About this RNA
Shown here is a 234-nucleotide part of an RNA from Verrucomicrobia bacterium LW23, a member of the family "Bacterial large subunit ribosomal RNA". Taxonomically the source falls in Verrucomicrobiota (Bacteria, Pseudomonadati). For this family Rfam cites "The comparative RNA web (CRW) site: an online database of comparative sequence and structure information for ribosomal, intron, and other RNAs" (Cannone et al., BMC Bioinformatics, 2002). The match comes from Rfam's covariance-model search (2708 bits).

RNA sequence: GAGUUACUGUCUGUGGCAAGUCCAAGCAUCUGUGAUGCGAAGGCGAAGCGAAAGCGAGUCCGAAAUGGGCGCCCCUAGCCGCAGGCAGUAGACCCGAAGCGGAGGUGAUCUACUCAUGGUCAGGAUGAAGGUUACUUAACCGUAACUGAAGGUCCGAACUGGUGAAGGUUGAAAACUUCUCAGAUGAACUGUGAGUAGGAGCGAAAGACUAAUCAAACCCCGUGAUAGCUGGUU
Numbered sequence: 001g002a003g004u005u006a007c008u009g010u011c012u013g014u015g016g017c018a019a020g021u022c023c024a025a026g027c028a029u030c031u032g033u034g035a036u037g038c039g040a041a042g043g044c045g046a047a048g049c050g051a052a053a054g055c056g057a058g059u060c061c062g063a064a065a066u067g068g069g070c071g072c073c074c075c076u077a078g079c080c081g082c083a084g085g086c087a088g089u090a091g092a093c094c095c096g097a098a099g100c101g102g103a104g105g106u107g108a109u110c111u112a113c114u115c116a117u118g119g120u121c122a123g124g125a126u127g128a129a130g131g132u133u134a135c136u137u138a139a140c141c142g143u144a145a146c147u148g149a150a151g152g153u154c155c156g157a158a159c160u161g162g163u164g165a166a167g168g169u170u171g172a173a174a175a176c177u178u179c180u181c182a183g184a185u186g187a188a189c190u191g192u193g194a195g196u197a198g199g200a201g202c203g204a205a206a207g208a209c210u211a212a213u214c215a216a217a218c219c220c221c222g223u224g225a226u227a228g229c230u231g232g233u234u
Base pairs, nucleotide, nucleotide: 005090006089007088008087009086010085011084012083013082014081015080016079017078020044021043022042026038027037028036048055049054058070059069060068061067093232094231096229100222101221102220104219105218106217110198111197112196113195114194115193116192117191118190119189120188121186123155124154125153126152130147131146132145133144134143135142159183160182161181164179165178166177167176200210201209